This 75-nucleotide RNA sequence from Pseudomonas sp. GM84 belongs to the Rfam family "narK RNA". By type it is a cis-regulatory element. The base pairs follow the family's consensus structure, which is taken from published work.

RNA sequence: GGCCCAUCUCUUGCUGAAGAUAAUCCACCGGUAGCCAACGGCGGUUGCCCCACGUAAUCCCGACAAAGACGUCGC
Numbered sequence: 001g002g003c004c005c006a007u008c009u010c011u012u013g014c015u016g017a018a019g020a021u022a023a024u025c026c027a028c029c030g031g032u033a034g035c036c037a038a039c040g041g042c043g044g045u046u047g048c049c050c051c052a053c054g055u056a057a058u059c060c061c062g063a064c065a066a067a068g069a070c071g072u073c074g075c
Stems, first nucleotide, its partner, number of pairs: 030049007